[Rfam]
The family of this 298-nucleotide RNA from Aphidius gifuensis is "Metazoan signal recognition particle RNA". Rfam classes the family as a non-coding RNA gene. The base pairs follow the family's consensus structure, which is taken from published work. NCBI's taxonomy places the organism under Eukaryota, Opisthokonta, Insecta, Ichneumonoidea, Aphidius. For this family Rfam cites "Towards the structure of the mammalian signal recognition particle" (Wild et al., Curr Opin Struct Biol, 2002). The match comes from Rfam's covariance-model search (243 bits).
RNA sequence: GCUGGGAGUGUGGCGGCUCCUGUAAUCCGGCUACUCGGAGGCUAGUUAUUGUGGAGGGUCUGAGACCGGGAGUUACUACAGAUAUUGGUACCCAUGUUGACUGGAUGUCCGCACUAAGCUCGCCAUCAAUAUGGGCACCCUGGAGGAGUCCGGGGUGGCCAGGUUAGCUAAGGAGGGGCGAACCGGGCCAGAGGGGAAACCCCGCAGCCAAAAGUUCCCGUGGCGUGCAGUAGUGGGAUCGCGUCCCGGAGUGGGUUCAUAUUUGUAGCCUGGUUAAUAUGAUUCGACCAAUAACUUU
Numbered sequence: 001g002c003u004g005g006g007a008g009u010g011u012g013g014c015g016g017c018u019c020c021u022g023u024a025a026u027c028c029g030g031c032u033a034c035u036c037g038g039a040g041g042c043u044a045g046u047u048a049u050u051g052u053g054g055a056g057g058g059u060c061u062g063a064g065a066c067c068g069g070g071a072g073u074u075a076c077u078a079c080a081g082a083u084a085u086u087g088g089u090a091c092c093c094a095u096g097u098u099g100a101c102u103g104g105a106u107g108u109c110c111g112c113a114c115u116a117a118g119c120u121c122g123c124c125a126u127c128a129a130u131a132u133g134g135g136c137a138c139c140c141u142g143g144a145g146g147a148g149u150c151c152g153g154g155g156u157g158g159c160c161a162g163g164u165u166a167g168c169u170a171a172g173g174a175g176g177g178g179c180g181a182a183c184c185g186g187g188c189c190a191g192a193g194g195g196g197a198a199a200c201c202c203c204g205c206a207g208c209c210a211a212a213a214g215u216u217c218c219c220g221u222g223g224c225g226u227g228c229a230g231u232a233g234u235g236g237g238a239u240c241g242c243g244u245c246c247c248g249g250a251g252u253g254g255g256u257u258c259a260u261a262u263u264u265g266u267a268g269c270c271u272g273g274u275u276a277a278u279a280u281g282a283u284u285c286g287a288c289c290a291a292u293a294a295c296u297u298u
Stems, first nucleotide, its partner, number of pairs: 001042003004021006026039003044296008056285005064275007076268008086259003091255005097249001101248001103246006109237002112235005118228002121225006128165003132161003136157009168172001175218005186209003193202003